The family of this 107-nucleotide RNA sequence from Aramus guarauna is "Small nucleolar RNA U6-53/MBII-28". Rfam classes the family as a C/D-box small nucleolar RNA. The pairing is the family consensus, mapped onto this sequence.

[Rfam]
Nucleotides: 107
Base pairs, nucleotide, nucleotide: 002105003104004103040055041054042053043052044051
Number, partner (000 for none) and nucleotide at each position: 001000c002105u003104u004103c005000a006000a007000u008000g009000a010000a011000g012000a013000g014000a015000u016000g017000c018000a019000a020000u021000u022000g023000u024000a025000c026000u027000u028000c029000u030000g031000a032000c033000u034000u035000u036000g037000a038000g039000g040055u041054c042053c043052u044051u045000a046000a047000u048000u049000u050000g051044g052043a053042g054041g055040g056000a057000u058000u059000u060000u061000g062000g063000u064000g065000u066000c067000a068000a069000a070000g071000u072000c073000u074000u075000g076000a077000a078000u079000c080000a081000a082000a083000c084000u085000u086000g087000u088000u089000u090000c091000c092000u093000g094000a095000a096000g097000u098000c099000c100000u101000g102000a103004g104003a105002g106000u107000a